Rfam assigns this 84-nucleotide sequence from Ophiophagus hannah to the family "mir-455 microRNA precursor family". Its family is annotated with miRNA-mediated post-transcriptional gene silencing, male sex differentiation and cellular response to amino acid stimulus in the Gene Ontology. The base pairs follow the family's consensus structure, which was predicted with RNAalifold.
[Rfam]
RNA sequence: CCCUGGUGUGAGGGUAUGUGCCCUUGGACUACAUCGUGGAAAAUAUCACCAUGCAGUCCAUGGGCAUAUACACUUGCCCCAAGG
Numbered sequence: 001c002c003c004u005g006g007u008g009u010g011a012g013g014g015u016a017u018g019u020g021c022c023c024u025u026g027g028a029c030u031a032c033a034u035c036g037u038g039g040a041a042a043a044u045a046u047c048a049c050c051a052u053g054c055a056g057u058c059c060a061u062g063g064g065c066a067u068a069u070a071c072a073c074u075u076g077c078c079c080c081a082a083g084g
Stems, first nucleotide, its partner, number of pairs: 015070009025060006032053003036049003